[Rfam]
RNA sequence: GCCUUCCUUGUCUUGGGGAGCUUAGUGUGUCAAUGAUCAUUUUAGUGAGGCCACUUAUGCUGACACCAAAACUAAAAUUUACCCGCACCCGUUUUUACAACGAGUGCAAUUUUUGGAAUA
Numbered sequence: 001g002c003c004u005u006c007c008u009u010g011u012c013u014u015g016g017g018g019a020g021c022u023u024a025g026u027g028u029g030u031c032a033a034u035g036a037u038c039a040u041u042u043u044a045g046u047g048a049g050g051c052c053a054c055u056u057a058u059g060c061u062g063a064c065a066c067c068a069a070a071a072c073u074a075a076a077a078u079u080u081a082c083c084c085g086c087a088c089c090c091g092u093u094u095u096u097a098c099a100a101c102g103a104g105u106g107c108a109a110u111u112u113u114u115g116g117a118a119u120a
Base pairs, nucleotide, nucleotide: 005019006018007017008016009015020060021059023057024055025054026053027052029051030050031049038045085107086106087105088104090102091101093100094099